The record is a 99-nucleotide sequence from Herbinix hemicellulosilytica, which matches "SAM riboswitch aptamer (S box leader)" in Rfam.
A search with the family's covariance model found it, with a score of 80 bits.
Rfam's curators write: The SAM riboswitch is found upstream of a number of genes which code for proteins involved in methionine or cysteine biosynthesis in Gram-positive bacteria.

RNA sequence: CUCUUAUUCAGAGUGGCGGAGAGACAAGGCUCGAUGAAGCCACGGCAACCCCAUUGGUAUGGAAGGUGCCAACCGGAGCGAGAAAUCGAACAAUAAGAG
Numbered sequence: 001c002u003c004u005u006a007u008u009c010a011g012a013g014u015g016g017c018g019g020a021g022a023g024a025c026a027a028g029g030c031u032c033g034a035u036g037a038a039g040c041c042a043c044g045g046c047a048a049c050c051c052c053a054u055u056g057g058u059a060u061g062g063a064a065g066g067u068g069c070c071a072a073c074c075g076g077a078g079c080g081a082g083a084a085a086u087c088g089a090a091c092a093a094u095a096a097g098a099g
Base pairs, nucleotide, nucleotide: 001099002098003097004096005095006094007093008092013043014042015041016040017039021032022031023030044070045069046068047067049066050065051062052061053060054059079088080087081086
Pairs were carried over by alignment from the consensus structure, which is taken from published work.